Overview:
Rfam assigns this 118-nucleotide RNA from Panicum virgatum to the family "Small nucleolar RNA SNORD14". The family has 18 seed sequences and 4,559 matches in Rfam 15.1. Taxonomically the source falls in Panicum sect. Hiantes (Eukaryota, Streptophytina, Petrosaviidae, Panicoideae). For this family Rfam cites "An essential domain in Saccharomyces cerevisiae U14 snoRNA is absent in vertebrates, but conserved in other yeasts" (Samarsky et al., Nucleic Acids Res, 1996). About the family: U14 small nucleolar RNA (U14 snoRNA) is required for early cleavages of eukaryotic precursor rRNAs. In yeasts, this molecule possess a stem-loop region (known as the Y-domain) which is essential for function. A similar structure, but with a different consensus sequence, is found in plants, but is absent in vertebrates.

RNA sequence: GCCCGAUGAUGAUAGACACAAGGCUUGUUUCUCUACAUUCGCAGUUGCCGCCUAAGAGCUUUCGCCCUGCCAGGCUUGAGAGCUGAUGCUGCUAAUCCUUCCUUGGAUGUCUGAGGGC
Numbered sequence: 001g002c003c004c005g006a007u008g009a010u011g012a013u014a015g016a017c018a019c020a021a022g023g024c025u026u027g028u029u030u031c032u033c034u035a036c037a038u039u040c041g042c043a044g045u046u047g048c049c050g051c052c053u054a055a056g057a058g059c060u061u062u063c064g065c066c067c068u069g070c071c072a073g074g075c076u077u078g079a080g081a082g083c084u085g086a087u088g089c090u091g092c093u094a095a096u097c098c099u100u101c102c103u104u105g106g107a108u109g110u111c112u113g114a115g116g117g118c
Stems, first nucleotide, its partner, number of pairs: 001118004058083006